Background
Purine riboswitch aptamer: a 102-nucleotide RNA from Alkaliphilus oremlandii. The source organism's lineage runs through Bacteria, Bacillota, Natronincolaceae, Alkaliphilus and Alkaliphilus oremlandii.
RNA sequence: AGUGAAUAUGGAUUUUAAAUUUAUAUAAUGCUAAUAAUAUGGAUUAGCAGUCUCUACCGAAUAACCGUAAAUUAUUCGACUAUGAAUGAAAGUGUACCUAGG
Number, nucleotide and partner (000 for none) at each position: 001a000002g000003u000004g000005a000006a000007u000008a000009u000010g000011g000012a000013u000014u000015u000016u000017a000018a000019a087020u086021u085022u084023a083024u082025a081026u000027a000028a000029u049030g048031c047032u046033a045034a044035u043036a000037a000038u000039a000040u000041g000042g000043a035044u034045u033046a032047g031048c030049a029050g000051u000052c000053u000054c000055u000056a000057c000058c078059g077060a076061a075062u074063a073064a072065c000066c000067g000068u000069a000070a000071a000072u064073u063074a062075u061076u060077c059078g058079a000080c000081u025082a024083u023084g022085a021086a020087u019088g000089a000090a000091a000092g000093u000094g000095u000096a000097c000098c000099u000100a000101g000102g000
Gene Ontology term of the family: purine nucleobase biosynthetic process.